Rfam assigns this 59-nucleotide RNA from Eutrema salsugineum to the family "Plastid-psbA-3 3UTR RNA". Pairs were carried over by alignment from the consensus structure, which was predicted with LocARNA. For this family Rfam cites "Retrograde signaling in plants: A critical review focusing on the GUN pathway and beyond" (Richter et al., Plant Commun, 2023). About the family: Plastid psbA-3 is a non-coding RNA (ncRNA) present in plastids. Its Rfam clan is "Plastid-psbA 3UTR RNA clan".

RNA sequence: AAAUGAGCAAUAUAAGCCUUCUUUAAAUUCAAAAGAAGGCUUAUAUUGCUCGUUUUUUA
Numbered sequence: 001a002a003a004u005g006a007g008c009a010a011u012a013u014a015a016g017c018c019u020u021c022u023u024u025a026a027a028u029u030c031a032a033a034a035g036a037a038g039g040c041u042u043a044u045a046u047u048g049c050u051c052g053u054u055u056u057u058u059a
Stems, first nucleotide, its partner, number of pairs: 001055014019037006